Shown here is a 108-nucleotide RNA sequence from Plutella xylostella, a member of the family "mir-8517 microRNA precursor family". NCBI's taxonomy places the organism under Eukaryota, Altocrustacea, Insecta, Eumetabola, Plutella. Its family is annotated with RISC complex and miRNA-mediated post-transcriptional gene silencing in the Gene Ontology. Pairs were carried over by alignment from the consensus structure, which was predicted with RNAalifold.
[Rfam]
RNA sequence: UUAUAGGAAGUUUUAGCUAUUGAACUGUUUUGUCCCUCUCUGUCAAAGAACAAUUUGUUCUGAGUUGGAGAUUGACAAAACAAUUCAAUAGCUAAAACGUUCUGUAAC
Numbered sequence: 001u002u003a004u005a006g007g008a009a010g011u012u013u014u015a016g017c018u019a020u021u022g023a024a025c026u027g028u029u030u031u032g033u034c035c036c037u038c039u040c041u042g043u044c045a046a047a048g049a050a051c052a053a054u055u056u057g058u059u060c061u062g063a064g065u066u067g068g069a070g071a072u073u074g075a076c077a078a079a080a081c082a083a084u085u086c087a088a089u090a091g092c093u094a095a096a097a098c099g100u101u102c103u104g105u106a107a108c
Stems, first nucleotide, its partner, number of pairs: 001107006011097014026082003029069004034064001049059004